[Rfam]
RNA: Bacterial RNase P class A
Organism: Luteitalea sp.
RNA sequence: GCAGUGGUCCGAGGUGAUCGCCGCGAGAGGUGCUCGUUCCGGGUGCUGACCGCGGAGGAAAGUCCGAACUCCAUAGGGCAGUGCGCUGGGUAACGCCCAGUCAGGGUGACCUGAAGGAAAGUGGCACAGAAAACAUACCGCCCGCCGAAGCGCGCAAGCGCGAAGGCGGGUAAGGGUGAAAAGGUGCGGUAAGAGCGCACCGCGCGCCCCGUGAGGGGCGUGGCAGGCUAAACCCCGCACGGAGCAAGACCAAAUAGGGAAGCGUUGGCAUCCCGGCGCGGGCAACUGCGCUGGAGCGUGCCAGGAGAGUCGCCCGCUCGAAGCUUCCGGGUAGGUCGCCAGAGGUCGUCAGCAAUGACGGCCCCAAGAGGAAUGAUCGCCGCUGCACUUGCUGCAAGGCGGGUGCGGCACAGAAUUCGGCUUACUGGACCACUGCGACC
Numbered sequence: 001g002c003a004g005u006g007g008u009c010c011g012a013g014g015u016g017a018u019c020g021c022c023g024c025g026a027g028a029g030g031u032g033c034u035c036g037u038u039c040c041g042g043g044u045g046c047u048g049a050c051c052g053c054g055g056a057g058g059a060a061a062g063u064c065c066g067a068a069c070u071c072c073a074u075a076g077g078g079c080a081g082u083g084c085g086c087u088g089g090g091u092a093a094c095g096c097c098c099a100g101u102c103a104g105g106g107u108g109a110c111c112u113g114a115a116g117g118a119a120a121g122u123g124g125c126a127c128a129g130a131a132a133a134c135a136u137a138c139c140g141c142c143c144g145c146c147g148a149a150g151c152g153c154g155c156a157a158g159c160g161c162g163a164a165g166g167c168g169g170g171u172a173a174g175g176g177u178g179a180a181a182a183g184g185u186g187c188g189g190u191a192a193g194a195g196c197g198c199a200c201c202g203c204g205c206g207c208c209c210c211g212u213g214a215g216g217g218g219c220g221u222g223g224c225a226g227g228c229u230a231a232a233c234c235c236c237g238c239a240c241g242g243a244g245c246a247a248g249a250c251c252a253a254a255u256a257g258g259g260a261a262g263c264g265u266u267g268g269c270a271u272c273c274c275g276g277c278g279c280g281g282g283c284a285a286c287u288g289c290g291c292u293g294g295a296g297c298g299u300g301c302c303a304g305g306a307g308a309g310u311c312g313c314c315c316g317c318u319c320g321a322a323g324c325u326u327c328c329g330g331g332u333a334g335g336u337c338g339c340c341a342g343a344g345g346u347c348g349u350c351a352g353c354a355a356u357g358a359c360g361g362c363c364c365c366a367a368g369a370g371g372a373a374u375g376a377u378c379g380c381c382g383c384u385g386c387a388c389u390u391g392c393u394g395c396a397a398g399g400c401g402g403g404u405g406c407g408g409c410a411c412a413g414a415a416u417u418c419g420g421c422u423u424a425c426u427g428g429a430c431c432a433c434u435g436c437g438a439c440c
Stems, first nucleotide, its partner, number of pairs: 001436010011425001013381007021055005029047006060423003064420005069244004076315004081240005086100005101115001102113004116235002121233002123229003138175002140171007183201006202224001203222008248337004258328006307319004344363008